[Rfam]
RNA: MAT2A 3'UTR stem loop C
Organism: Terrapene triunguis
RNA sequence: GUGCUCUGAAUGGCUGGUGUAGCUACAGAGAAGCCAGCUUCCUUCAGAGCCAC
Numbered sequence: 001g002u003g004c005u006c007u008g009a010a011u012g013g014c015u016g017g018u019g020u021a022g023c024u025a026c027a028g029a030g031a032a033g034c035c036a037g038c039u040u041c042c043u044u045c046a047g048a049g050c051c052a053c
Stems, first nucleotide, its partner, number of pairs: 001053003004049006012039007019026002